RNA sequence: AUAAAUAAGCUGUUUAUUCCUUAGACAGCAGGUGUCGCAAGACAUAACGGGAAACCGCCUGCCGAGGAGAGACUUGUAAUCGAUGAUAUCGCGCCUGACGGCGCGUUUGCGGUUGCGCUCUUUUCGCUUUUGGCGGAAGGGGCGCUUUUUGAUUGUUCCC
Numbered sequence: 001a002u003a004a005a006u007a008a009g010c011u012g013u014u015u016a017u018u019c020c021u022u023a024g025a026c027a028g029c030a031g032g033u034g035u036c037g038c039a040a041g042a043c044a045u046a047a048c049g050g051g052a053a054a055c056c057g058c059c060u061g062c063c064g065a066g067g068a069g070a071g072a073c074u075u076g077u078a079a080u081c082g083a084u085g086a087u088a089u090c091g092c093g094c095c096u097g098a099c100g101g102c103g104c105g106u107u108u109g110c111g112g113u114u115g116c117g118c119u120c121u122u123u124u125c126g127c128u129u130u131u132g133g134c135g136g137a138a139g140g141g142g143c144g145c146u147u148u149u150u151g152a153u154u155g156u157u158c159c160c
Stems, first nucleotide, its partner, number of pairs: 028062006034043003115145014
Dot-bracket structure: ...........................(((((((((....))).............))))))....................................................((((((((((((((...))))))))))))))...............
About this RNA:
The family of this 160-nucleotide RNA sequence from Ligaoa zhengdingensis is "Ribosomal protein L10 leader". By type it is a cis-regulatory leader. Rfam's curators write: This family is a putative r-protein leader autoregulatory structure found in B. subtilis and other low-GC Gram-positive bacteria. It is located in the 5' untranslated regions of mRNAs encoding ribosomal proteins L10 and L12 (rplJ-rplL). A Rho-independent transcription terminator structure that is probably involved in regulation is included at the 3' end.